[Rfam]
This 78-nucleotide RNA from Sciurus vulgaris belongs to the Rfam family "mir-296 microRNA precursor family". The base pairs follow the family's consensus structure, which was predicted with RNAalifold.
RNA sequence: AGGGCCCUUCCAGAGGGCCCCCCUCAACCCUGUUGUGCUCACUUCAGAGGGUUGGGUGGAGGCUCUCCCGAAGGACCC
Numbered sequence: 001a002g003g004g005c006c007c008u009u010c011c012a013g014a015g016g017g018c019c020c021c022c023c024u025c026a027a028c029c030c031u032g033u034u035g036u037g038c039u040c041a042c043u044u045c046a047g048a049g050g051g052u053u054g055g056g057u058g059g060a061g062g063c064u065c066u067c068c069c070g071a072a073g074g075a076c077c078c
Base pairs, nucleotide, nucleotide: 006074007073008072009071010070013067014066015065016064017063018062019061020059021058022056023055025054026053027052028051029050030049031048033047034046035045